[Rfam]
RNA sequence: GACAGUUCUCGGGUGAUGCACCCCAGAAUCGAGCUCCCACCUCUCUGGUUCCAGGUGCAUCACCUGAGAACUGCA
Numbered sequence: 001g002a003c004a005g006u007u008c009u010c011g012g013g014u015g016a017u018g019c020a021c022c023c024c025a026g027a028a029u030c031g032a033g034c035u036c037c038c039a040c041c042u043c044u045c046u047g048g049u050u051c052c053a054g055g056u057g058c059a060u061c062a063c064c065u066g067a068g069a070a071c072u073g074c075a
Stems, first nucleotide, its partner, number of pairs: 003073001005071013019057004026051006033044001